[Rfam]
RNA sequence: AUUUAGGUGAGGAGUGAAAUAAGUAAAAGUCCUUGAGGUCGAAACAUGGCAAGACUCUCGGGGGCUUUUUCUUU
Numbered sequence: 001a002u003u004u005a006g007g008u009g010a011g012g013a014g015u016g017a018a019a020u021a022a023g024u025a026a027a028a029g030u031c032c033u034u035g036a037g038g039u040c041g042a043a044a045c046a047u048g049g050c051a052a053g054a055c056u057c058u059c060g061g062g063g064g065c066u067u068u069u070u071c072u073u074u
Stems, first nucleotide, its partner, number of pairs: 025069007035059003038055003

Shown here is a 74-nucleotide RNA sequence from Cyanobacterium aponinum, a member of the family "Cyano-1 RNA". By type it is a small RNA. Pairs were carried over by alignment from the consensus structure, which is taken from published work.